[Rfam]
RNA sequence: GAGACACCCUUAUGGGGUAGGCCUUGCUUCAGUGGGGCUUUGGCACUCACUGAGUCUGCCCCGAGUGUGUCUCU
Dot-bracket structure: (((((((.((...((((((.(.(.....((((((((((....)).))))))))).))))))).)).))))))).
A member of the RNA family "mir-9229 microRNA precursor family" from Myotis brandtii, 74 nucleotides long. The match comes from Rfam's covariance-model search (81 bits). NCBI's taxonomy places the organism under Eukaryota, Dipnotetrapodomorpha, Yangochiroptera, Vespertilionidae, Myotis. Gene Ontology terms of the family: RISC complex and miRNA-mediated post-transcriptional gene silencing. Rfam 15.1 lists 27,225 matches to the family in 9 species. The base pairs follow the family's consensus structure, which was predicted with RNAalifold.